A member of the RNA family "Enterococcus sRNA 68 (Lacto-3 RNA)" from Pediococcus argentinicus, 124 nucleotides long. Pairs were carried over by alignment from the consensus structure, which is taken from published work. On this family, see Innocenti et al., RNA 2015: "Whole-genome mapping of 5' RNA ends in bacteria by tagged sequencing: a comprehensive view in Enterococcus faecalis". Lineage of the source: Bacteria > Bacillati > Bacillota > Lactobacillaceae > Pediococcus.
RNA sequence: UGCGAUGAGUCGAAAUAAAUCAGACAAAGCAAUUUGUUCCACGUAGGUGGCUAGUGAUUUUUUCACCGGCACACGUAUUUCUACCGUAUUUGUAGAGUGUGUAAUGGAGGGUGUGUGAACCGCC
Numbered sequence: 001u002g003c004g005a006u007g008a009g010u011c012g013a014a015a016u017a018a019a020u021c022a023g024a025c026a027a028a029g030c031a032a033u034u035u036g037u038u039c040c041a042c043g044u045a046g047g048u049g050g051c052u053a054g055u056g057a058u059u060u061u062u063u064c065a066c067c068g069g070c071a072c073a074c075g076u077a078u079u080u081c082u083a084c085c086g087u088a089u090u091u092g093u094a095g096a097g098u099g100u101g102u103a104a105u106g107g108a109g110g111g112u113g114u115g116u117g118a119a120c121c122g123c124c
Stems, first nucleotide, its partner, number of pairs: 018059005023038006039050004070101005080096005110124004114119001